[Rfam]
RNA sequence: AUACCCCAUGAUGCUCAGGUCCGCCGCAUCUCCUGGGUCGUGGGGUCGGUCGGUCGGUUCGCAUAUCACGCGGUUCCUCGUGCCGCUUGCGCGCCGACCGGCCCCCUU
Dot-bracket structure: ..((((((((...((((((............)))))).)))))))).(((((((((((..................................))))))))))).....
RNA: EcpR1
Organism: Affinirhizobium straminoryzae